[Rfam]
RNA sequence: GGUCACGAAGCCGAUCGCGCCCCUGGACGAUCAUCGGCUGGCAACCUCGCAUCCCGCGCAAGGUGCCCUCCAGGGAAGACCGGGCCCUCACAGCCCAGUGGGGGUAAGCGCGGAUC
Numbered sequence: 001g002g003u004c005a006c007g008a009a010g011c012c013g014a015u016c017g018c019g020c021c022c023c024u025g026g027a028c029g030a031u032c033a034u035c036g037g038c039u040g041g042c043a044a045c046c047u048c049g050c051a052u053c054c055c056g057c058g059c060a061a062g063g064u065g066c067c068c069u070c071c072a073g074g075g076a077a078g079a080c081c082g083g084g085c086c087c088u089c090a091c092a093g094c095c096c097a098g099u100g101g102g103g104g105u106a107a108g109c110g111c112g113g114a115u116c
Stems, first nucleotide, its partner, number of pairs: 001081004009039007040067003045063003049059002084105008
RNA: SAM (S-adenosyl methionine) riboswitch aptamer